[Rfam]
Rfam assigns this 173-nucleotide RNA sequence from Candidatus Burkholderia verschuerenii to the family "Burkholderia RNA 14". A search with the family's covariance model found it, with a score of 124 bits. Pairs were carried over by alignment from the consensus structure, which was predicted with RNAfold.
RNA sequence: GUCGGCGUCGUGACCUUGCAGACGGCGUCCGUGCCGGUCGUCAGCGAAUUGCCGGGCCGCACCAGCGCGUUCCUCGAUGCGCAGGUGCGCGCGCGUGUCGAUGGCAUCGUGCUGCGUCGCGAGUUCACCGAAGGCGGGCUCGUCAAGCAGGGUCAGCGGCUGUACAAGAUCGA
Numbered sequence: 001g002u003c004g005g006c007g008u009c010g011u012g013a014c015c016u017u018g019c020a021g022a023c024g025g026c027g028u029c030c031g032u033g034c035c036g037g038u039c040g041u042c043a044g045c046g047a048a049u050u051g052c053c054g055g056g057c058c059g060c061a062c063c064a065g066c067g068c069g070u071u072c073c074u075c076g077a078u079g080c081g082c083a084g085g086u087g088c089g090c091g092c093g094c095g096u097g098u099c100g101a102u103g104g105c106a107u108c109g110u111g112c113u114g115c116g117u118c119g120c121g122a123g124u125u126c127a128c129c130g131a132a133g134g135c136g137g138g139c140u141c142g143u144c145a146a147g148c149a150g151g152g153u154c155a156g157c158g159g160c161u162g163u164a165c166a167a168g169a170u171c172g173a
Base pairs, nucleotide, nucleotide: 003054004053005052006051007050008047009046010045011043012042013041014040019036021034023031024030057150059148060147061143062142065139068136069135070134072133074131075130078093079092080091081090082089094121095120097118099116100115102114103113104112105111106110157172158171160168161167
Taxonomically the source falls in Burkholderia (Bacteria, Pseudomonadota, Burkholderiales, Burkholderiaceae).